[Rfam]
RNA: mir-205 microRNA precursor family
Organism: Labrus bergylta
RNA sequence: GUUUUCUAUCCUUCAUUCCACCGGAGUCUGUGUAGAGUGCUAAUCAGAUUUCAGUGGGGUGAAGAGUAAAACACA
Numbered sequence: 001g002u003u004u005u006c007u008a009u010c011c012u013u014c015a016u017u018c019c020a021c022c023g024g025a026g027u028c029u030g031u032g033u034a035g036a037g038u039g040c041u042a043a044u045c046a047g048a049u050u051u052c053a054g055u056g057g058g059g060u061g062a063a064g065a066g067u068a069a070a071a072c073a074c075a
Stems, first nucleotide, its partner, number of pairs: 011064006019056003023052004028047003